[Rfam]
RNA sequence: ACUGCCUUCAUGCAGGCCGUAGCAGAAGUGCUCAUGGCACAUCCUUAUCAGAUUCCAUCAAACCUGUGAAUUCUGCU
Numbered sequence: 001a002c003u004g005c006c007u008u009c010a011u012g013c014a015g016g017c018c019g020u021a022g023c024a025g026a027a028g029u030g031c032u033c034a035u036g037g038c039a040c041a042u043c044c045u046u047a048u049c050a051g052a053u054u055c056c057a058u059c060a061a062a063c064c065u066g067u068g069a070a071u072u073c074u075g076c077u
Base pairs, nucleotide, nucleotide: 014045015044016043021077022076023075024074025073026072027071028040029039030038049066050065051064053062054061
RNA: Mammalian CPEB3 ribozyme